[Rfam]
RNA sequence: AGUGUUUUUCUCUCCACUUGAAUCGAAGAGA
Dot-bracket structure: [[[[....((((((]]]]......).)))))
Pseudoknot of upstream pseudoknot domain (UPD) of the 3'UTR: a 31-nucleotide RNA from Tobamovirus. Rfam links the family to the GO term regulation of viral transcription. On this family, see Leathers et al., Mol Cell Biol 1993: "A phylogenetically conserved sequence within viral 3' untranslated RNA pseudoknots regulates translation". By type it is a cis-regulatory element.